Overview:
This 85-nucleotide RNA sequence from Aeoliella mucimassa belongs to the Rfam family "c-di-GMP-I-GGC riboswitch aptamer". Rfam 15.1 lists 1,298 matches to the family in 717 species. The organism belongs to Aeoliella, within Bacteria.
RNA sequence: CUCGACAAAGGCAAACCAGUCGUAAGGCUGGGACGCAAAGUCCAGGACCCACUUCUUAGGAAGCGUGGUAGCCAGACUGCCGAAG
Numbered sequence: 001c002u003c004g005a006c007a008a009a010g011g012c013a014a015a016c017c018a019g020u021c022g023u024a025a026g027g028c029u030g031g032g033a034c035g036c037a038a039a040g041u042c043c044a045g046g047a048c049c050c051a052c053u054u055c056u057u058a059g060g061a062a063g064c065g066u067g068g069u070a071g072c073c074a075g076a077c078u079g080c081c082g083a084a085g
Stems, first nucleotide, its partner, number of pairs: 001085001003082002011036002016031006034071001039078004045073002047069003